Nucleotides: 108
Stems, first nucleotide, its partner, number of pairs: 001024006040074004046063007076098008
Number, partner (000 for none) and nucleotide at each position: 001024u002023g003022a004021c005020c006019c007000u008000u009000g010000u011000u012000a013000a014000g015000c016000c017000g018000a019006g020005g021004g022003u023002c024001a025000c026000c027000u028000a029000g030000c031000c032000a033000a034000c035000u036000g037000a038000c039000g040074u041073u042072g043071u044000u045000a046063g047062u048061g049060a050059a051058u052057a053000g054000u055000a056000u057052u058051g059050u060049u061048c062047a063046c064000a065000u066000c067000a068000u069000a070000u071043a072042u073041a074040a075000g076098c077097c078096a079095a080094u081093c082092g083091c084000g085000g086000u087000u088000c089000u090000u091083g092082c093081g094080a095079u096078u097077g098076g099000c100000u101000a102000u103000u104000u105000u106000u107000u108000u
Notes: This 108-nucleotide RNA from Vibrio cholerae belongs to the Rfam family "Qrr RNA". The source organism's lineage runs through Bacteria, Pseudomonadati, Gammaproteobacteria, Vibrionales and Vibrio cholerae. Rfam's curators write: This family represents a set of small RNAs (the Qrr RNAs) that are thought to be involved in the regulation of quorum sensing in Vibrio species. It is believed that these RNAs, guided by a protein, Hfq, can mediate the destabilisation of the quorum-sensing master regulators LuxR/HapR mRNAs. The family's consensus secondary structure is taken from published work. It is annotated as a small RNA.